[Rfam]
RNA sequence: CCACUCUUGCACAGAAUGGAAUCAUGUUGUAAUUACAGUGCAAUAAGGUAAUUAUAACCCA
Numbered sequence: 001c002c003a004c005u006c007u008u009g010c011a012c013a014g015a016a017u018g019g020a021a022u023c024a025u026g027u028u029g030u031a032a033u034u035a036c037a038g039u040g041c042a043a044u045a046a047g048g049u050a051a052u053u054a055u056a057a058c059c060c061a
Stems, first nucleotide, its partner, number of pairs: 007043006028056009